[Rfam]
Rfam assigns this 128-nucleotide RNA sequence from Chrysochloris asiatica to the family "Small nucleolar RNA ACA64".
RNA sequence: GCUGGCUGAAAAUCGCUUGCGGCCUCGCCCGUGGCCAUAAGUGAGAUACGGCGCCCAGAGCCACCAGGGGUCUUAGCUCGCCGCCCACUGCCUCAGUGUGGGCGCCCGAAACCCAGUCCCCGACACGG
Numbered sequence: 001g002c003u004g005g006c007u008g009a010a011a012a013u014c015g016c017u018u019g020c021g022g023c024c025u026c027g028c029c030c031g032u033g034g035c036c037a038u039a040a041g042u043g044a045g046a047u048a049c050g051g052c053g054c055c056c057a058g059a060g061c062c063a064c065c066a067g068g069g070g071u072c073u074u075a076g077c078u079c080g081c082c083g084c085c086c087a088c089u090g091c092c093u094c095a096g097u098g099u100g101g102g103c104g105c106c107c108g109a110a111a112c113c114c115a116g117u118c119c120c121c122g123a124c125a126c127g128g
Base pairs, nucleotide, nucleotide: 005052006051007050008049010047013044014043015042016041021036022035023034024033067121069119070118072116073115078109079108080107086100087099088098

Record summary:
By type it is an H/ACA-box small nucleolar RNA. Gene Ontology terms of the family: RNA processing and nucleolus.